A member of the RNA family "Hfq-regulated sRNA 12" from Erwinia tasmaniensis, 82 nucleotides long. It is annotated as a small RNA. Rfam links the family to the GO term protein binding. It scores 71 bits against the family's covariance model. Pairs were carried over by alignment from the consensus structure, which was predicted with RNAfold. Taxonomically the source falls in Erwinia (Bacteria, Pseudomonadati, Pseudomonadota, Erwiniaceae).
RNA sequence: CAUUUUUAUUUUUAUCUUCAUUUCACGGAAUGAACCGCAAAACUUAGUAUUCCCGCCAGGCUUUAUGCCUGGCGUUUUUUUU
Numbered sequence: 001c002a003u004u005u006u007u008a009u010u011u012u013u014a015u016c017u018u019c020a021u022u023u024c025a026c027g028g029a030a031u032g033a034a035c036c037g038c039a040a041a042a043c044u045u046a047g048u049a050u051u052c053c054c055g056c057c058a059g060g061c062u063u064u065a066u067g068c069c070u071g072g073c074g075u076u077u078u079u080u081u082u
Stems, first nucleotide, its partner, number of pairs: 005034008014021002037050001039048001054074008